Shown here is a 71-nucleotide sequence from Dinothrombium tinctorium, a member of the family "HDV ribozyme from F. prausnitzii".
RNA sequence: GAACGUCUACACUGGCCACCUCCACGCGGUGACGUUCGGGCAACGGAAUUAAUUCCGGCUGAGAGUCAGUA
Numbered sequence: 001g002a003a004c005g006u007c008u009a010c011a012c013u014g015g016c017c018a019c020c021u022c023c024a025c026g027c028g029g030u031g032a033c034g035u036u037c038g039g040g041c042a043a044c045g046g047a048a049u050u051a052a053u054u055c056c057g058g059c060u061g062a063g064a065g066u067c068a069g070u071a
Base pairs, nucleotide, nucleotide: 001037002036003035004034005033006032007031018030019029020028044057045056046055047054048053

The base pairs follow the family's consensus structure, which is taken from published work. The source organism's lineage runs through Eukaryota, Acariformes, Trombidiformes, Prostigmata and Dinothrombium. On this family, see Webb et al., Science 2009: "Widespread occurrence of self-cleaving ribozymes".